[Rfam]
RNA: Small nucleolar RNA SNORA42/SNORA80 family
RNA sequence: GCAUGGCAAUGGAUUUAUGAAGAGGUCUGUGAGGUGACCCCUUCAUAGUGUACCCCAUGCUAAAGUGAGCUGCUGUUCCGAACCAUUGGCACGUCCGAAUAAAUGUGGGCUUGACCACUGAAGUGAACUGCACAGUU
Numbered sequence: 001g002c003a004u005g006g007c008a009a010u011g012g013a014u015u016u017a018u019g020a021a022g023a024g025g026u027c028u029g030u031g032a033g034g035u036g037a038c039c040c041c042u043u044c045a046u047a048g049u050g051u052a053c054c055c056c057a058u059g060c061u062a063a064a065g066u067g068a069g070c071u072g073c074u075g076u077u078c079c080g081a082a083c084c085a086u087u088g089g090c091a092c093g094u095c096c097g098a099a100u101a102a103a104u105g106u107g108g109g110c111u112u113g114a115c116c117a118c119u120g121a122a123g124u125g126a127a128c129u130g131c132a133c134a135g136u137u
Base pairs, nucleotide, nucleotide: 001060002059003058004057005055006054015048016047017046018045019044020043022041024039026036073130075128076127077126078125084120085119089115091112093110094109095108096107